[Rfam]
RNA sequence: UGUGCACUUUACUAUAAGUCGCUCUGGAUAAGAGCGUGUGCUAAAUGACUAAAA
Numbered sequence: 001u002g003u004g005c006a007c008u009u010u011a012c013u014a015u016a017a018g019u020c021g022c023u024c025u026g027g028a029u030a031a032g033a034g035c036g037u038g039u040g041c042u043a044a045a046u047g048a049c050u051a052a053a054a
Base pairs, nucleotide, nucleotide: 013043015040016039020036021035022034023033024032025031
RNA: UnaL2 LINE 3' element